RNA sequence: AAAAAGUUGAGACCAGAAACAACUUUAAAAAACGGGGCAGAACCGAAAAGCCAAAGGAGUAGGAAAAAA
Numbered sequence: 001a002a003a004a005a006g007u008u009g010a011g012a013c014c015a016g017a018a019a020c021a022a023c024u025u026u027a028a029a030a031a032a033c034g035g036g037g038c039a040g041a042a043c044c045g046a047a048a049a050g051c052c053a054a055a056g057g058a059g060u061a062g063g064a065a066a067a068a069a
Stems, first nucleotide, its partner, number of pairs: 006023004036052003043063002
RNA: DUF805 RNA